[Rfam]
RNA sequence: UGGGUCGGCUGGACGGUCGCGUGGCGGGUCACCGCACCGAGGAACGUCCGGGCUCCGCAGGGCAGGGCGGUGGGUAACACCCACCCGGAGCAAUCCGCGAGACAGUGCCACAGAGAGCAGACCGCCGGGGCGCGAGCCCCGGUAAGGGUGAAAGGGUGGUGUAAGAGACCACCGGGAUCGUGGUGACACGAUCCGCAGGGCAAACCUCGCCCGGAGCAAGGCCAGACAGGGGAUGCCGACGCGGCCCGCCGAGUCCCCGGGUAGGCCGCUGGAGCGCCGCGGCAACGCGUCGCCGAGAGAGAUGACCGUCGAAGGGGCGUCAGCCCCGGAACAGAACCCGGCGUACAGGCCGGCCCAUUCG
Number, nucleotide and partner (000 for none) at each position: 001u357002g356003g355004g354005u353006c352007g351008g350009c349010u348011g346012g310013a309014c308015g307016g306017u305018c304019g000020c039021g038022u000023g000024g035025c034026g033027g032028g000029u000030c000031a000032c027033c026034g025035c024036a000037c000038c021039g020040a000041g000042g000043a000044a344045c343046g342047u000048c341049c340050g339051g338052g337053c216054u215055c214056c213057g000058c000059a000060g246061g245062g000063c243064a000065g212066g211067g210068c209069g208070g084071u083072g082073g081074g080075u000076a000077a000078c000079a000080c074081c073082c072083a071084c070085c099086c097087g096088g095089a094090g000091c000092a000093a000094u089095c088096c087097g086098c000099g085100a207101g206102a000103c000104a000105g205106u204107g201108c200109c199110a000111c000112a000113g000114a000115g000116a000117g000118c000119a000120g000121a000122c147123c146124g143125c142126c141127g140128g139129g138130g137131c136132g000133c000134g000135a000136g131137c130138c129139c128140c127141g126142g125143u124144a000145a000146g123147g122148g000149u000150g000151a000152a000153a000154g000155g173156g172157u171158g170159g169160u168161g000162u000163a000164a000165g000166a000167g000168a160169c159170c158171a157172c156173c155174g196175g194176g193177a192178u191179c190180g189181u188182g187183g000184u000185g000186a000187c182188a181189c180190g179191a178192u177193c176194c175195g000196c174197a000198g000199g109200g108201c107202a000203a000204a106205c105206c101207u100208c069209g068210c067211c066212c065213g056214g055215a054216g053217c000218a000219a000220g267221g266222c265223c264224a000225g000226a000227c000228a000229g258230g257231g256232g255233a254234u253235g000236c000237c000238g250239a000240c248241g247242c000243g063244g000245c061246c060247c241248g240249c000250c238251g000252a000253g234254u233255c232256c231257c230258c229259g000260g000261g000262u000263a000264g223265g222266c221267c220268g000269c000270u000271g000272g000273a000274g293275c292276g291277c000278c289279g288280c287281g286282g000283c000284a000285a000286c281287g280288c279289g278290u000291c276292g275293c274294c000295g000296a000297g000298a000299g000300a000301g000302a000303u000304g018305a017306c016307c015308g014309u013310c012311g000312a000313a000314g000315g000316g000317g000318c000319g000320u000321c000322a000323g000324c000325c000326c000327c000328g000329g000330a000331a000332c000333a000334g000335a000336a000337c052338c051339c050340g049341g048342c046343g045344u044345a000346c011347a000348g010349g009350c008351c007352g006353g005354c004355c003356c002357a001358u000359u000360c000361g000

This 361-nucleotide RNA from Microbacterium sp. No. 7 belongs to the Rfam family "Bacterial RNase P class A". Taxonomically the source falls in Microbacterium (Bacteria, Bacillati, Actinomycetota, Actinomycetes). Pairs were carried over by alignment from the consensus structure, which is taken from published work. Rfam classes the family as a ribozyme.